A member of the RNA family "Archaeal large subunit ribosomal RNA" from uncultured marine crenarchaeote SAT1000-49-D2, 374 nucleotides of a longer RNA.

RNA sequence: CGGGUAUACCGUAUGGCGAGGGAAUUCGGCAAAUUAGUCCUGUAGCUUCGGUAUAAGGGAUGCCUGCUGUUUUAAUGAGGAAUUGGGACAGCAGGUUGCAAUGACUAGGGGGUUCCGACUGUUUAAUAAAAACACAGGUGACUGCUAGUCCGAAAGGAUUUGUAUAGUCACUGAAUCCUGGCCGGUGCAGGUACCUAAAACUUGGGUUCAACCGAGCUAAGGGCCUGUUAACGCCGGGAGUAACUCUGACUCUCUUAAGGUAGCCAAAUGCCUUGUCGGGUAAGUUCCGACGCGCAUGAAUGGAACAACGAGAGCCCCACUGUCCCCGCCUACAACCCGGUGAAGCCACAUAAGGUGGACGAACAGUCCAUCAU
Numbered sequence: 001c002g003g004g005u006a007u008a009c010c011g012u013a014u015g016g017c018g019a020g021g022g023a024a025u026u027c028g029g030c031a032a033a034u035u036a037g038u039c040c041u042g043u044a045g046c047u048u049c050g051g052u053a054u055a056a057g058g059g060a061u062g063c064c065u066g067c068u069g070u071u072u073u074a075a076u077g078a079g080g081a082a083u084u085g086g087g088a089c090a091g092c093a094g095g096u097u098g099c100a101a102u103g104a105c106u107a108g109g110g111g112g113u114u115c116c117g118a119c120u121g122u123u124u125a126a127u128a129a130a131a132a133c134a135c136a137g138g139u140g141a142c143u144g145c146u147a148g149u150c151c152g153a154a155a156g157g158a159u160u161u162g163u164a165u166a167g168u169c170a171c172u173g174a175a176u177c178c179u180g181g182c183c184g185g186u187g188c189a190g191g192u193a194c195c196u197a198a199a200a201c202u203u204g205g206g207u208u209c210a211a212c213c214g215a216g217c218u219a220a221g222g223g224c225c226u227g228u229u230a231a232c233g234c235c236g237g238g239a240g241u242a243a244c245u246c247u248g249a250c251u252c253u254c255u256u257a258a259g260g261u262a263g264c265c266a267a268a269u270g271c272c273u274u275g276u277c278g279g280g281u282a283a284g285u286u287c288c289g290a291c292g293c294g295c296a297u298g299a300a301u302g303g304a305a306c307a308a309c310g311a312g313a314g315c316c317c318c319a320c321u322g323u324c325c326c327c328g329c330c331u332a333c334a335a336c337c338c339g340g341u342g343a344a345g346c347c348a349c350a351u352a353a354g355g356u357g358g359a360c361g362a363a364c365a366g367u368c369c370a371u372c373a374u
Stems, first nucleotide, its partner, number of pairs: 001339004011333003015330004020325003037061005045052002062096015097101001109318007116310002120134003137172008145162001148159004176304003180235003185232002187228005194223003201216005236254006255259001275291006354372005
Dot-bracket structure: ((((......(((.((((.(((..............(((((...((....))....)))))(((((((((((((((.....)))))))))))))))(...).......(((((((((..(((.........)))..(((((((((..((((....))))..)..))))))))...(((.(((..(((((((..(((....(((((......)))))....))))))))..)))))((((((.......))))))(...)...............((((((.....))))))..........)))....)).)))))))....))).)))))))..))))..............(((((.........)))))..
Lineage of the source: Archaea > Thermoproteati > Nitrososphaerota > Nitrososphaeria > Nitrosopumilales.